Shown here is a 174-nucleotide sequence from Flavobacterium branchiophilum, a member of the family "Group II catalytic intron D1-D4-2".
Rfam links the family to the GO term Group II intron splicing.
Group II introns are found in rRNA, tRNA and mRNA of organelles in fungi, plants and protists, and also in mRNA in bacteria.
The family has 144 seed sequences and 1,231 matches in Rfam 15.1.
RNA sequence: GAGAGUAGGUCUCUCAGUGACGACUUUCAGGAGUAGUUACUACUUGAGCGAAGCGGAUGCACGGAUACCAAAAAAACAUUAAAAAAUAAUCCGUAAACCACUUUGUGCUGCAUUAUCUAGGAAACUAUGGUGUGGUGAGCGACAAAGAAAAACGGCAACAAGAUUGCUGUAGGU
Dot-bracket structure: (((((.....)))))(..((..(.((.........................................................)).)..))..)....(.((((((((.(((.(((..........))).))).)).....))))))....((((((.......))))))..).